Shown here is a 122-nucleotide RNA from Myotis davidii, a member of the family "Small nucleolar RNA SNORA28". It scores 82 bits against the family's covariance model. The base pairs follow the family's consensus structure, which was predicted with RNAfold. On this family, see Huttenhofer et al., EMBO J 2001: "RNomics: an experimental approach that identifies 201 candidates for novel, small, non-messenger RNAs in mouse". Lineage of the source: Eukaryota > Craniata > Gnathostomata > Laurasiatheria > Myotis. About the family: ACA28 is a member of the H/ACA class of snoRNA that guide the sites of modification of uridines to pseudouridines. It is annotated as an H/ACA-box small nucleolar RNA. Rfam links the family to the GO terms RNA processing and nucleolus.
[Rfam]
RNA sequence: AAUUAAAACAAAUAGUGGAUAUCAACACUGUCUGACACAAUUUGAGCUUGCUACAGCAACAAAGUCUAACUUAUUCCAGUGCUCUCCUCUAUGAGACAAGUCGUUAUAUAGACUUAGACAGU
Numbered sequence: 001a002a003u004u005a006a007a008a009c010a011a012a013u014a015g016u017g018g019a020u021a022u023c024a025a026c027a028c029u030g031u032c033u034g035a036c037a038c039a040a041u042u043u044g045a046g047c048u049u050g051c052u053a054c055a056g057c058a059a060c061a062a063a064g065u066c067u068a069a070c071u072u073a074u075u076c077c078a079g080u081g082c083u084c085u086c087c088u089c090u091a092u093g094a095g096a097c098a099a100g101u102c103g104u105u106a107u108a109u110a111g112a113c114u115u116a117g118a119c120a121g122u
Stems, first nucleotide, its partner, number of pairs: 009046001013037001016034006062115007072108003077103001079101002083096004